[Rfam]
RNA sequence: CCCUUUUCGACGACAGUGUUCGUCAAAACUG
Numbered sequence: 001c002c003c004u005u006u007u008c009g010a011c012g013a014c015a016g017u018g019u020u021c022g023u024c025a026a027a028a029c030u031g
Stems, first nucleotide, its partner, number of pairs: 001031001004028004009024005014018001
A member of the RNA family "Iron response element II" from Ixodes scapularis, 31 nucleotides long. Its family is annotated with response to iron ion in the Gene Ontology. The match comes from Rfam's covariance-model search (33 bits). A reference for the family is Koeller et al. (1989), "A cytosolic protein binds to structural elements within the iron regulatory region of the transferrin receptor mRNA", Proc Natl Acad Sci U S A. It is annotated as a cis-regulatory element. Taxonomically the source falls in Ixodes (Eukaryota, Eumetazoa, Arthropoda, Arachnida). The family has 30 seed sequences and 5,197 matches in Rfam 15.1.